[Rfam]
RNA sequence: CCGUGCUAGAUGGGGAGGUAGCGGUGCCCUAUUCCUGCAAUCCGCUGUAGCAGGGUUGAAUUCCUAUUAUAGGCUUUUUCCUGUAGGGUCUGCCCCCUGCAAGUGGCAAUGAAAACCGGGUCUUACGCAAUGAAAACCUGUGAACCCCGUCAGGUUCGGAAGAAAGCAGCGGUAAGCAGACAUUUUCAUGUGCCGUAAGCAUUGCCUGGUUAGAGUUAACUACAAGGGUUACGCUUGUAAGAUUUAAGUCGAAAAUAGGUGCACGG
Number, nucleotide and partner (000 for none) at each position: 001c266002c265003g264004u263005g262006c261007u000008a000009g057010a056011u055012g030013g029014g028015g027016a000017g025018g000019u023020a000021g000022c000023g019024g000025u017026g000027c015028c014029c013030u012031a000032u000033u000034c054035c053036u052037g051038c050039a000040a000041u000042c000043c000044g000045c000046u000047g000048u000049a000050g038051c037052a036053g035054g034055g011056u010057u009058g000059a000060a000061u000062u000063c259064c258065u257066a256067u255068u254069a000070u000071a000072g250073g249074c248075u247076u246077u000078u000079u242080c241081c000082u239083g238084u237085a236086g235087g234088g000089u000090c000091u231092g230093c000094c000095c227096c226097c000098u224099g223100c000101a000102a000103g220104u219105g217106g216107c215108a000109a000110u000111g000112a000113a000114a211115a210116c209117c208118g207119g206120g205121u204122c199123u198124u197125a196126c195127g194128c190129a189130a000131u188132g187133a186134a185135a184136a000137c000138c179139u178140g177141u176142g000143a000144a000145c000146c000147c172148c171149g170150u169151c000152a000153g000154g000155u164156u163157c162158g000159g000160a000161a000162g157163a156164a155165a000166g000167c000168a000169g150170c149171g148172g147173u000174a000175a000176g141177c140178a139179g138180a000181c000182a000183u000184u135185u134186u133187c132188a131189u129190g128191u000192g000193c000194c127195g126196u125197a124198a123199g122200c000201a000202u000203u000204g121205c120206c119207u118208g117209g116210u115211u114212a000213g000214a000215g107216u106217u105218a000219a104220c103221u000222a000223c099224a098225a000226g096227g095228g000229u000230u092231a091232c000233g000234c087235u086236u085237g084238u083239a082240a000241g080242a079243u000244u000245u000246a076247a075248g074249u073250c072251g000252a000253a000254a068255a067256u066257a065258g064259g063260u000261g006262c005263a004264c003265g002266g001